[Rfam]
RNA: Ribosomal protein L10 leader
Organism: Fontibacillus phaseoli
RNA sequence: UCAAUUUGAAUAUGCUUACCGUAGACAGUAGGUGCCGAAAGGCUUAAUUUCCUACCGAGGUGUUGUGAUAGAAUAUCGUGUGCCGCAGUUUACCGCGGUUGAUGAUUCGUCAGGCCUUCGUGAUUCUGCGGAGGCUUUUUUCAUGGAAAU
Numbered sequence: 001u002c003a004a005u006u007u008g009a010a011u012a013u014g015c016u017u018a019c020c021g022u023a024g025a026c027a028g029u030a031g032g033u034g035c036c037g038a039a040a041g042g043c044u045u046a047a048u049u050u051c052c053u054a055c056c057g058a059g060g061u062g063u064u065g066u067g068a069u070a071g072a073a074u075a076u077c078g079u080g081u082g083c084c085g086c087a088g089u090u091u092a093c094c095g096c097g098g099u100u101g102a103u104g105a106u107u108c109g110u111c112a113g114g115c116c117u118u119c120g121u122g123a124u125u126c127u128g129c130g131g132a133g134g135c136u137u138u139u140u141u142c143a144u145g146g147a148a149a150u
Stems, first nucleotide, its partner, number of pairs: 028055005034043003114135009